[Rfam]
RNA sequence: GUUGUGCGAUAGACUUACCUCCACGUGGUGCACAAUGGGCAACGUUUAAUCAUACGGCGAAAACGCCUUU
Numbered sequence: 001g002u003u004g005u006g007c008g009a010u011a012g013a014c015u016u017a018c019c020u021c022c023a024c025g026u027g028g029u030g031c032a033c034a035a036u037g038g039g040c041a042a043c044g045u046u047u048a049a050u051c052a053u054a055c056g057g058c059g060a061a062a063a064c065g066c067c068u069u070u
Stems, first nucleotide, its partner, number of pairs: 001036007017029003043056003047052001
RNA: HDV ribozyme from F. prausnitzii